The family of this 100-nucleotide sequence from Actinocatenispora sera is "Glycine riboswitch aptamer". Taxonomically the source falls in Actinocatenispora (Bacteria, Actinomycetota, Actinomycetes, Micromonosporales). The literature on the family includes a 2004 paper in Science by Mandal et al., "A glycine-dependent riboswitch that uses cooperative binding to control gene expression".

RNA sequence: UUGACCCGUGUGGGAGAGACCGCCCGGCCGGUUGGUCGGGGGGCGCCGAAGGGGCAAUUCCUCCCCGGAACCUCUCAGGCAAAAGGACCGCUCGGGUAGG
Numbered sequence: 001u002u003g004a005c006c007c008g009u010g011u012g013g014g015a016g017a018g019a020c021c022g023c024c025c026g027g028c029c030g031g032u033u034g035g036u037c038g039g040g041g042g043g044c045g046c047c048g049a050a051g052g053g054g055c056a057a058u059u060c061c062u063c064c065c066c067g068g069a070a071c072c073u074c075u076c077a078g079g080c081a082a083a084a085g086g087a088c089c090g091c092u093c094g095g096g097u098a099g100g
Stems, first nucleotide, its partner, number of pairs: 006095003010091004020043002023040007045080003048076002052074003058068002